This 73-nucleotide RNA from Upupa epops belongs to the Rfam family "Small nucleolar RNA SNORD19".
The family is grouped with related families in Rfam's "SNORD19 clan".
Pairs were carried over by alignment from the consensus structure.
Rfam classes the family as a C/D-box small nucleolar RNA.
Taxonomically the source falls in Upupa (Eukaryota, Craniata, Archosauria, Coelurosauria).

[Rfam]
RNA sequence: GAGUUAUGAACAAGAUCUAAAAGGAAUCUGAGAUUCCACUGAAGAGAUAAGAUCCAACUCUGAGCUUCCUGCC
Numbered sequence: 001g002a003g004u005u006a007u008g009a010a011c012a013a014g015a016u017c018u019a020a021a022a023g024g025a026a027u028c029u030g031a032g033a034u035u036c037c038a039c040u041g042a043a044g045a046g047a048u049a050a051g052a053u054c055c056a057a058c059u060c061u062g063a064g065c066u067u068c069c070u071g072c073c
Stems, first nucleotide, its partner, number of pairs: 001067004